[Rfam]
RNA sequence: GAAAAAUGAUGAUAUUUUCUGUCUCCUGAUAUUACAGUGAAGACUUCAGAUCCAACUCUGAUUUCACUCUAGUU
Numbered sequence: 001g002a003a004a005a006a007u008g009a010u011g012a013u014a015u016u017u018u019c020u021g022u023c024u025c026c027u028g029a030u031a032u033u034a035c036a037g038u039g040a041a042g043a044c045u046u047c048a049g050a051u052c053c054a055a056c057u058c059u060g061a062u063u064u065c066a067c068u069c070u071a072g073u074u
Stems, first nucleotide, its partner, number of pairs: 001065004
RNA: Small nucleolar RNA SNORD19
Organism: Picathartes gymnocephalus